[Rfam]
RNA sequence: CUGCGGAAGGUGACUGGCGCGAAAACGUGGGAAGACCACGGGGAAGCCUUCUGGCAUAGCAAAGACCGUGCGCCUGGGUCGGACGC
Numbered sequence: 001c002u003g004c005g006g007a008a009g010g011u012g013a014c015u016g017g018c019g020c021g022a023a024a025a026c027g028u029g030g031g032a033a034g035a036c037c038a039c040g041g042g043g044a045a046g047c048c049u050u051c052u053g054g055c056a057u058a059g060c061a062a063a064g065a066c067c068g069u070g071c072g073c074c075u076g077g078g079u080c081g082g083a084c085g086c
Stems, first nucleotide, its partner, number of pairs: 004053007011045001014042002016074005027039004064080004

The family of this 86-nucleotide RNA sequence from Deinococcus radiodurans is "ZMP/ZTP riboswitch aptamer (pfl RNA motif)". Rfam's curators put it in the seed alignment. The organism belongs to Deinococcus radiodurans, within Bacteria.